[Rfam]
RNA sequence: AGCCCAAUAGAAGUCUUAAUUUAUUUCUUUGCUAUGUAAGAGUGUUUAGAGUUUUUAACUUUAUUUCUCCUUCAUGCU
Numbered sequence: 001a002g003c004c005c006a007a008u009a010g011a012a013g014u015c016u017u018a019a020u021u022u023a024u025u026u027c028u029u030u031g032c033u034a035u036g037u038a039a040g041a042g043u044g045u046u047u048a049g050a051g052u053u054u055u056u057a058a059c060u061u062u063a064u065u066u067c068u069c070c071u072u073c074a075u076g077c078u
Base pairs, nucleotide, nucleotide: 009071010070012068016058017057018056019055025049026048028040029039030038031037032036
RNA: Stem loopII regulatory element in POLB
Organism: Heterocephalus glaber